[Rfam]
RNA sequence: AGGCUCCUGGUGCUUACCACUGGCUGUGUUCUUACACUGACUGCCUAGAAAGAGGAGACAGAGUAAACUUACCUGAUAUACACCUCUACCCAGGCCCUGUGCCUGGUCUGUAUUGUGAAUGCAGGGGGACACAG
Numbered sequence: 001a002g003g004c005u006c007c008u009g010g011u012g013c014u015u016a017c018c019a020c021u022g023g024c025u026g027u028g029u030u031c032u033u034a035c036a037c038u039g040a041c042u043g044c045c046u047a048g049a050a051a052g053a054g055g056a057g058a059c060a061g062a063g064u065a066a067a068c069u070u071a072c073c074u075g076a077u078a079u080a081c082a083c084c085u086c087u088a089c090c091c092a093g094g095c096c097c098u099g100u101g102c103c104u105g106g107u108c109u110g111u112a113u114u115g116u117g118a119a120u121g122c123a124g125g126g127g128g129a130c131a132c133a134g
Stems, first nucleotide, its partner, number of pairs: 002059001004057005020043001022041001026037004072126003076120002086110001090106006
The record is a 134-nucleotide sequence from Cebus imitator, which matches "Small nucleolar RNA SNORA51" in Rfam. ACA51 is a member of the H/ACA class of snoRNA that guide the sites of modification of uridines to pseudouridines. Lineage of the source: Eukaryota > Eumetazoa > Craniata > Mammalia > Cebus. Rfam links the family to the GO terms nucleolus and RNA processing. A search with the family's covariance model found it, with a score of 125 bits. The family's consensus secondary structure was predicted with PFOLD.